Pseudomonas sRNA P24: a 257-nucleotide RNA sequence from Metapseudomonas resinovorans. About the family: This small RNA (sRNA) was computationally identified in the genome of the opportunistic pathogen Pseudomonas aeruginosa and its expression verified by Northern blot analysis. P24 is conserved across several Pseudomonas species and in Azotobacter vinelandii. It appears to be consistently located between a hypothetical protein gene and a transcriptional regulator gene (AsnC family) in the genomes of all these species. P24 has a predicted Rho independent terminator at the 3' end but the function of P24 is unknown. The source organism's lineage runs through Bacteria, Pseudomonadota, Pseudomonadales, Metapseudomonas and Metapseudomonas resinovorans.
[Rfam]
RNA sequence: UUGCGUAAUUGAUGCCGUGGUGAGCAAUAUUAGCAAUCAUUUGUCGCGGACCGUGACGUAAGAUUUCUCUCAGUUUCAAGGCCCGGACAGCAAGUCCACCCGACCCGCCCAAUCAGGUGCGUCGGCGCCGCCGAUCCAACCGGGUCGAGCUGGCAACCGGGUCCGCACUGCCCAAUCAGGCAGGCGACGAAAGCGGCGACACAAUCGCCAGCACAGGACGAAUUUCCCGAAGGGGGGCCCGCAGUCAGGGGCUCCCC
Numbered sequence: 001u002u003g004c005g006u007a008a009u010u011g012a013u014g015c016c017g018u019g020g021u022g023a024g025c026a027a028u029a030u031u032a033g034c035a036a037u038c039a040u041u042u043g044u045c046g047c048g049g050a051c052c053g054u055g056a057c058g059u060a061a062g063a064u065u066u067c068u069c070u071c072a073g074u075u076u077c078a079a080g081g082c083c084c085g086g087a088c089a090g091c092a093a094g095u096c097c098a099c100c101c102g103a104c105c106c107g108c109c110c111a112a113u114c115a116g117g118u119g120c121g122u123c124g125g126c127g128c129c130g131c132c133g134a135u136c137c138a139a140c141c142g143g144g145u146c147g148a149g150c151u152g153g154c155a156a157c158c159g160g161g162u163c164c165g166c167a168c169u170g171c172c173c174a175a176u177c178a179g180g181c182a183g184g185c186g187a188c189g190a191a192a193g194c195g196g197c198g199a200c201a202c203a204a205u206c207g208c209c210a211g212c213a214c215a216g217g218a219c220g221a222a223u224u225u226c227c228c229g230a231a232g233g234g235g236g237g238c239c240c241g242c243a244g245u246c247a248g249g250g251g252c253u254c255c256c257c
Stems, first nucleotide, its partner, number of pairs: 001012003043057004076192001080188001081162004085097004100125005107118003127154004133146005164186003168183005193212002195209005232257004237252004
It scores 138 bits against the family's covariance model. By type it is a non-coding RNA gene. The family's consensus secondary structure was predicted with RNAalifold. A reference for the family is Livny et al. (2006), "Identification of 17 Pseudomonas aeruginosa sRNAs and prediction of sRNA-encoding genes in 10 diverse pathogens using the bioinformatic tool sRNAPredict2", Nucleic Acids Res.